[Rfam]
Rfam assigns this 62-nucleotide RNA from Pongo abelii to the family "U7 small nuclear RNA".
RNA sequence: UAGUGUUACAGCUCUUUUAAAAUUUGUUUAGCAGGCUUUCCAAUUUUUUCCAGAAAGCUCCC
Number, nucleotide and partner (000 for none) at each position: 001u000002a000003g000004u000005g000006u000007u000008a000009c000010a000011g000012c000013u000014c000015u000016u000017u000018u000019a000020a000021a000022a000023u000024u000025u000026g000027u000028u000029u000030a000031g000032c000033a000034g059035g058036c057037u056038u055039u054040c053041c000042a049043a048044u000045u000046u000047u000048u043049u042050c000051c000052a000053g040054a039055a038056a037057g036058c035059u034060c000061c000062c000